[Rfam]
RNA sequence: GACAAUAGAAUAGGGGACUCAAGGGUGGUCGGCACACUCCUGAAAGGGGGUGAUGCCAAUGUCAGUAUACGAAGCAUUAAUGUUUGCAGUAACUUUCGCAGCAUUAGUUGUCGCAAUACUGUCAUUCAAUCAAAAGAAAUAACCCAUCCUUGAGUUGAGCGCUCAGUUAUGAUGGGUUAUCUUAUCCUCUAACAGCCGCCCCCUUGAUGGGACCUGCUAUUGUAUUGGCUGUUCGAUACCCUAUAUCGGACA
Dot-bracket structure: .((((.((.....(...((((((((.(((.....(((((((....)))))))........(.(((((......(((........)))..........((.............))..))))).)..................)))..))))))))..........((...............))............)...(((......))).....)).))))......(((((((((.....)))))))))

BsrG: a 252-nucleotide sequence from Sporosarcina pasteurii. The family has 6 seed sequences and 614 matches in Rfam 15.1. It scores 98 bits against the family's covariance model. Rfam links the family to the GO terms toxin activity and autolysis. From the family's description: bsrE, bsrG and bsrH pair through intermolecular interactions with antisense sRNAs. They form type I toxin/antitoxin system that includes an mRNA encoding for a short, toxic peptide (bsrE, bsrG and bsrH) and an antitoxin that is comprised of an antisense RNA. bsrG encodes a 39-amino-acid toxin, and the 180 nucleotide antisense sRNA called SR4 acts as the antitoxin (they overlap by 123 nucleotides). SR4 interaction with the 3'UTR of bsrG RNA promotes bsrG degradation and inhibits its translation. BsrG interferes with cell envelope biosynthesis, causes membrane invaginations and delocalisation of the cell wall synthesis and initiates autolysis. bsrE RNA encodes 30 amino-acid toxin peptide. Its antitoxin gene, SR5 overlaps by 112 nucleotides at the 3' end of bsrE. SR5 also overlaps bsrG from nucleotide 163 to 52 (Rfam overlap check). The antitoxin SR5 promotes bsrE degradation but unlike SR4 it does not directly inhibits toxin mRNA translation. Pairs were carried over by alignment from the consensus structure, which was predicted with WAR.